Eukaryotic large subunit ribosomal RNA: a 211-nucleotide part of an RNA from Bigelowiella natans. Pairs were carried over by alignment from the consensus structure, which is taken from published work.
RNA sequence: CAUCUGGGGGUGCGAUGUGGGGAUGGUUAUAAGCCAGUUCCUUUGAUCGAUCCCAGCCGCGCAUCGCACGAGACAGGUCCGACACGGAUCUGAAACGAAUCUCGUGACACGAUGAGGGGCUGUGUAGAUAGAGACAGAGUCAGGCAUGUCCUGCAUGACCUGAUCACGAGGAUCGAUCCAACAUCCUCCGAUGACCCGUCUUGAAACACGG
Numbered sequence: 001c002a003u004c005u006g007g008g009g010g011u012g013c014g015a016u017g018u019g020g021g022g023a024u025g026g027u028u029a030u031a032a033g034c035c036a037g038u039u040c041c042u043u044u045g046a047u048c049g050a051u052c053c054c055a056g057c058c059g060c061g062c063a064u065c066g067c068a069c070g071a072g073a074c075a076g077g078u079c080c081g082a083c084a085c086g087g088a089u090c091u092g093a094a095a096c097g098a099a100u101c102u103c104g105u106g107a108c109a110c111g112a113u114g115a116g117g118g119g120c121u122g123u124g125u126a127g128a129u130a131g132a133g134a135c136a137g138a139g140u141c142a143g144g145c146a147u148g149u150c151c152u153g154c155a156u157g158a159c160c161u162g163a164u165c166a167c168g169a170g171g172a173u174c175g176a177u178c179c180a181a182c183a184u185c186c187u188c189c190g191a192u193g194a195c196c197c198g199u200c201u202u203g204a205a206a207c208a209c210g211g
Stems, first nucleotide, its partner, number of pairs: 001193004006188007017042001020041005026035001046177007196211004